Source information:
Shown here is a 104-nucleotide RNA sequence from Brevundimonas sp. Leaf363, a member of the family "Glycine riboswitch aptamer".
[Rfam]
Nucleotides: 104
Stems, first nucleotide, its partner, number of pairs: 001104005012026004028092003031088002035086003042078001
Number, partner (000 for none) and nucleotide at each position: 001104c002103g003102c004101u005100g006000g007000a008000a009000a010000g011000u012026c013025g014024g015023u016000c017000u018000u019000c020000a021000u022000g023015a024014c025013c026012g027000c028092g029091c030090c031088g032087a033000c034000g035086g036085a037084g038000c039000a040000a041000g042078g043000c044000c045000g046000c047000c048000u049000c050000g051000a052000c053000a054000u055000c056000c057000g058000g059000u060000u061000g062000u063000u064000c065000g066000g067000a068000u069000g070000g071000g072000g073000g074000g075000c076000g077000c078042c079000g080000g081000a082000a083000u084037c085036u086035c087032u088031c089000a090030g091029g092028c093000u094000u095000c096000a097000g098000g099000a100005c101004a102003g103002c104001g
Annotation: Taxonomically the source falls in Brevundimonas (Bacteria, Pseudomonadati, Pseudomonadota, Caulobacterales). The base pairs follow the family's consensus structure.